[Rfam]
RNA sequence: UACUCAGUAUAGUUUUUAUGGCUAUACGCAUGAAUAUAGUUGUAAGACUAAAGAAAGGGUAG
Numbered sequence: 001u002a003c004u005c006a007g008u009a010u011a012g013u014u015u016u017u018a019u020g021g022c023u024a025u026a027c028g029c030a031u032g033a034a035u036a037u038a039g040u041u042g043u044a045a046g047a048c049u050a051a052a053g054a055a056a057g058g059g060u061a062g
Base pairs, nucleotide, nucleotide: 002060003059004058005057007027008026009025010024011023012022013021037050038049039048040047041046
Description: emrB-Lactobacillus RNA: a 62-nucleotide RNA sequence from Lactobacillus hominis.